[Rfam]
RNA sequence: GGGGGCCGAUACACUGUACGAGAGUGAGUAGCAGGUCUCACAGUGAACCGGUCUCUUU
Numbered sequence: 001g002g003g004g005g006c007c008g009a010u011a012c013a014c015u016g017u018a019c020g021a022g023a024g025u026g027a028g029u030a031g032c033a034g035g036u037c038u039c040a041c042a043g044u045g046a047a048c049c050g051g052u053c054u055c056u057u058u
Stems, first nucleotide, its partner, number of pairs: 002055007012045006020039003
The family of this 58-nucleotide RNA sequence from Canis lupus is "mir-128 microRNA precursor family".
The family has 57 seed sequences and 1,337 matches in Rfam 15.1.
Rfam's curators put it in the seed alignment.
The literature on the family includes a 2005 paper in Genes Dev by Chen et al., "The developmental miRNA profiles of zebrafish as determined by small RNA cloning".